This 264-nucleotide RNA sequence from Allomyces macrogynus belongs to the Rfam family "Protozoan signal recognition particle RNA".
Gene Ontology terms of the family: SRP-dependent cotranslational protein targeting to membrane, signal sequence recognition and signal recognition particle, endoplasmic reticulum targeting.
The family is grouped with related families in Rfam's "SRP clan".
NCBI's taxonomy places the organism under Eukaryota, Opisthokonta, Blastocladiomycetes, Allomyces, Allomyces macrogynus.
[Rfam]
Nucleotides: 264
Stems, first nucleotide, its partner, number of pairs: 011053004083264001085263007099253006106243002109240005115233009124170005135164009144153003171175001178223005187216001189214003196207003
Number, partner (000 for none) and nucleotide at each position: 001000u002000u003000g004000c005000c006000u007000g008000u009000g010000a011053c012052u013051c014050c015000u016000a017000c018000g019000g020000c021000c022000a023000a024000c025000g026000g027000g028000a029000g030000g031000a032000c033000u034000g035000g036000a037000u038000u039000g040000a041000a042000g043000a044000a045000c046000u047000g048000c049000a050014g051013g052012a053011g054000g055000u056000c057000a058000u059000g060000c061000g062000a063000u064000c065000c066000g067000g068000c069000a070000c071000a072000u073000a074000g075000g076000g077000u078000g079000u080000g081000c082000g083264u084000u085263g086262c087261g088260c089259c090258u091257u092000g093000u094000c095000g096000a097000c098000c099253g100252a101251g102250c103249u104248g105000c106243c107242u108000g109240a110239u111238u112237u113236g114000a115233a116232c117231g118230c119229u120228c121227a122226g123225u124170g125169g126168a127167c128166g129000u130000c131000u132000c133000a134000a135164g136163g137162g138161c139160u140159c141158g142157c143156g144153c145152g146151a147000g148000a149000a150000a151146u152145c153144g154000c155000u156143u157142g158141c159140g160139g161138g162137u163136c164135c165000u166128c167127g168126u169125c170124c171175u172000u173000g174000a175171a176000u177000c178223c179222g180221c181220u182219g183000g184000g185000a186000a187216u188000g189214c190213g191212u192000g193000a194000g195000g196207c197206c198205g199000g200000g201000c202000u203000a204000a205198c206197g207196g208000a209000g210000c211000a212191g213190c214189g215000a216187a217000c218000a219182c220181g221180g222179c223178g224000a225123g226122c227121u228120g229119a230118g231117c232116g233115u234000g235000g236113u237112a238111g239110a240109u241000c242107a243106g244000a245000a246000c247000a248104c249103a250102g251101u252100u253099c254000a255000g256000a257091g258090a259089g260088g261087u262086g263085c264083g